This 29-nucleotide sequence belongs to the Rfam family "S4-Flavobacteria ribosomal protein leader". Pairs were carried over by alignment from the consensus structure, which is taken from published work. It is one of the family's seed sequences. On this family, see Eckert and Weinberg, BMC Microbiol 2020: "Discovery of 20 novel ribosomal leader candidates in bacteria and archaea".

[Rfam]
RNA sequence: GAUUAUCGAAGAUUAGCUUAAUUCAUAUC
Numbered sequence: 001g002a003u004u005a006u007c008g009a010a011g012a013u014u015a016g017c018u019u020a021a022u023u024c025a026u027a028u029c
Stems, first nucleotide, its partner, number of pairs: 001029002004027003008024001009019003